[Rfam]
Nucleotides: 116
Stems, first nucleotide, its partner, number of pairs: 005112005011105012024092002029089002032086002
Number, partner (000 for none) and nucleotide at each position: 001000a002000c003000u004000u005112c006111g007110u008109u009108a010000a011105g012104a013103u014102a015101u016100g017099u018098u019097u020096g021095a022094u023000a024092u025091u026000c027000u028000u029089g030088g031000u032086u033085g034000u035000u036000g037000c038000a039000u040000u041000g042000u043000u044000u045000a046000u047000g048000u049000u050000g051000a052000c053000c054000u055000c056000a057000c058000a059000u060000a061000a062000u063000g064000u065000u066000g067000u068000g069000g070000u071000u072000a073000c074000g075000c076000u077000u078000u079000g080000a081000u082000u083000u084000u085033c086032a087000c088030c089029c090000a091025g092024g093000a094022a095021u096020c097019a098018a099017a100016c101015a102014u103013a104012u105011u106000a107000u108009u109008a110007a111006u112005g113000c114000g115000g116000c

This 116-nucleotide RNA sequence from Clunio marinus belongs to the Rfam family "mir-190 microRNA precursor family". The organism belongs to Clunio, within Eukaryota. The family's consensus secondary structure was predicted with RNAalifold. The literature on the family includes a 2006 paper in Nucleic Acids Res by Kloosterman et al., "Cloning and expression of new microRNAs from zebrafish". Rfam 15.1 lists 1,667 matches to the family in 854 species.